[Rfam]
RNA: ZMP/ZTP riboswitch aptamer (pfl RNA motif)
Organism: Kribbella sp. VKM Ac-2500
RNA sequence: ACUACGGACCGCUACUGGCGUUGAGGUGGUGUACCACCGGGGAACGGUCCGUCGGCGGAUCCGUCGACCAGCAGCCGCGCGCCUGGGCCACCCGA
Numbered sequence: 001a002c003u004a005c006g007g008a009c010c011g012c013u014a015c016u017g018g019c020g021u022u023g024a025g026g027u028g029g030u031g032u033a034c035c036a037c038c039g040g041g042g043a044a045c046g047g048u049c050c051g052u053c054g055g056c057g058g059a060u061c062c063g064u065c066g067a068c069c070a071g072c073a074g075c076c077g078c079g080c081g082c083c084u085g086g087g088c089c090a091c092c093c094g095a
Stems, first nucleotide, its partner, number of pairs: 004052008015041002017083005026037004074088003